Rfam assigns this 80-nucleotide RNA from Silurus meridionalis to the family "mir-27 microRNA precursor family". For this family Rfam cites "MicroRNA profile of Marek's disease virus-transformed T-cell line MSB-1: predominance of virus-encoded microRNAs" (Yao et al., J Virol, 2008). The source organism's lineage runs through Eukaryota, Actinopteri, Neopterygii, Osteoglossocephalai and Silurus. The family has 82 seed sequences and 1,440 matches in Rfam 15.1.
[Rfam]
RNA sequence: GUGAGGUGCAGGACUUGGCUUGCUUUGUGAACAGAUCCAGGAAAAGGCCAUGUUCACAGUGGCUAAGUUCCGCUCCUCUG
Numbered sequence: 001g002u003g004a005g006g007u008g009c010a011g012g013a014c015u016u017g018g019c020u021u022g023c024u025u026u027g028u029g030a031a032c033a034g035a036u037c038c039a040g041g042a043a044a045a046g047g048c049c050a051u052g053u054u055c056a057c058a059g060u061g062g063c064u065a066a067g068u069u070c071c072g073c074u075c076c077u078c079u080g
Stems, first nucleotide, its partner, number of pairs: 011070010027057007